[Rfam]
RNA sequence: GAUCUUAAAGGAAAUGGUGUCUUCCUUAACCAACCGCCUUCAACAAGCUGAUGACGCCUUAUUAAAA
Numbered sequence: 001g002a003u004c005u006u007a008a009a010g011g012a013a014a015u016g017g018u019g020u021c022u023u024c025c026u027u028a029a030c031c032a033a034c035c036g037c038c039u040u041c042a043a044c045a046a047g048c049u050g051a052u053g054a055c056g057c058c059u060u061a062u063u064a065a066a067a
Base pairs, nucleotide, nucleotide: 010025011024012023013022016058017057018056019055020054021053036048037047039045
Fluoride riboswitch aptamer (crcB RNA motif): a 67-nucleotide RNA sequence from Dysgonomonas sp. HDW5A.
Pairs were carried over by alignment from the consensus structure, which is taken from published work.
It scores 43 bits against the family's covariance model.